[Rfam]
RNA sequence: ACCGCCACGGACGGCGGUGGUUCCAAACAGAAGCGACGUUUUAAAGCAAAGCAAUUUGCAAAGCUUCAAAACUCGUAGGUUUGGUUUUGCCAUGGACGUCAAAACCAAACCGUUG
Numbered sequence: 001a002c003c004g005c006c007a008c009g010g011a012c013g014g015c016g017g018u019g020g021u022u023c024c025a026a027a028c029a030g031a032a033g034c035g036a037c038g039u040u041u042u043a044a045a046g047c048a049a050a051g052c053a054a055u056u057u058g059c060a061a062a063g064c065u066u067c068a069a070a071a072c073u074c075g076u077a078g079g080u081u082u083g084g085u086u087u088u089g090c091c092a093u094g095g096a097c098g099u100c101a102a103a104a105c106c107a108a109a110c111c112g113u114u115g
Base pairs, nucleotide, nucleotide: 001018002017003016004015005014006013034075035074036073038072039071040070041069042068044066045065046064047063078111079110080109081108082107083106084105085104086103087102088101089100091098
Dot-bracket structure: ((((((......))))))...............(((.(((((.((((...............)))).))))))))..((((((((((((.(......).))))))))))))....
The family of this 115-nucleotide sequence from Treponema phagedenis is "TD-2 RNA". The family's RNA type in Rfam is small RNA. Clan: TD (Treponema denticola) motifs.